[Rfam]
A member of the RNA family "mir-7386 microRNA precursor family" from Monodelphis domestica, 61 nucleotides long.
Rfam links the family to the GO terms miRNA-mediated post-transcriptional gene silencing and RISC complex.
RNA sequence: ACUUGGAUAAGGCACUCUUAUUUUGUGCCUUCCAGCAAAAUAAAUUACCUUAUCCUUGGUG
Numbered sequence: 001a002c003u004u005g006g007a008u009a010a011g012g013c014a015c016u017c018u019u020a021u022u023u024u025g026u027g028c029c030u031u032c033c034a035g036c037a038a039a040a041u042a043a044a045u046u047a048c049c050u051u052a053u054c055c056u057u058g059g060u061g
Stems, first nucleotide, its partner, number of pairs: 002058001005055008018043001020041006